[Rfam]
About this RNA: Mammalian CPEB3 ribozyme: a 75-nucleotide RNA sequence from Alligator mississippiensis. The base pairs follow the family's consensus structure, which is taken from published work. The mammalian CPEB3 ribozyme is a self cleaving RNA located in the second intron of the CPEB3 gene which belongs to a family of genes regulating messenger RNA polyadenylation. This ribozyme is highly conserved and found only in mammals.

RNA sequence: AACUGCCAUAAUGGCCAUAGCAGAAGUGCUCAUGUUGUGGUCCUGUCAGAUCCUAACAAAUCUGUAAAUUCUGCU
Numbered sequence: 001a002a003c004u005g006c007c008a009u010a011a012u013g014g015c016c017a018u019a020g021c022a023g024a025a026g027u028g029c030u031c032a033u034g035u036u037g038u039g040g041u042c043c044u045g046u047c048a049g050a051u052c053c054u055a056a057c058a059a060a061u062c063u064g065u066a067a068a069u070u071c072u073g074c075u
Base pairs, nucleotide, nucleotide: 013043015040016039019075020074021073022072023071024070025069026038027037028036047064048063049062050061051060